[Rfam]
RNA: Group II catalytic intron D1-D4-1
RNA sequence: CUACCGGCGUCGAGAGGCGUCGGGAUGGGGCGGCAGGGGACAGCAGAAGCCGUAGUAGCCGGACCAAGCGGCGAAGGGC
Numbered sequence: 001c002u003a004c005c006g007g008c009g010u011c012g013a014g015a016g017g018c019g020u021c022g023g024g025a026u027g028g029g030g031c032g033g034c035a036g037g038g039g040a041c042a043g044c045a046g047a048a049g050c051c052g053u054a055g056u057a058g059c060c061g062g063a064c065c066a067a068g069c070g071g072c073g074a075a076g077g078g079c
Stems, first nucleotide, its partner, number of pairs: 001027001004023008041046001049079003058072004
Dot-bracket structure: (..((((((((....))))))))...).............(....)..(((......((((.......))))....)))